This 131-nucleotide sequence from Eleutherodactylus coqui belongs to the Rfam family "Small nucleolar RNA SNORA55". ACA55 is a member of the H/ACA class of snoRNA that guide the sites of modification of uridines to pseudouridines. Lineage of the source: Eukaryota > Chordata > Craniata > Amphibia > Eleutherodactylus. The family's RNA type in Rfam is H/ACA-box small nucleolar RNA. Rfam links the family to the GO terms nucleolus and RNA processing. It scores 63 bits against the family's covariance model.
RNA sequence: GCACUCUAACGCAUCCUGUCCCGGCUACUCUGUGCCGGAGGAAAGGUAAAUAGGUGCUGAAAGAAAUGCAGAGGAAAUCCAGACAAAGCAUGCUUUACCUUGUGUUCUGUCCCUACACCUCUGCUACAGUU
Numbered sequence: 001g002c003a004c005u006c007u008a009a010c011g012c013a014u015c016c017u018g019u020c021c022c023g024g025c026u027a028c029u030c031u032g033u034g035c036c037g038g039a040g041g042a043a044a045g046g047u048a049a050a051u052a053g054g055u056g057c058u059g060a061a062a063g064a065a066a067u068g069c070a071g072a073g074g075a076a077a078u079c080c081a082g083a084c085a086a087a088g089c090a091u092g093c094u095u096u097a098c099c100u101u102g103u104g105u106u107c108u109g110u111c112c113c114u115a116c117a118c119c120u121c122u123g124c125u126a127c128a129g130u131u
Stems, first nucleotide, its partner, number of pairs: 001057005013047003017043001020038002068124006082111004087106002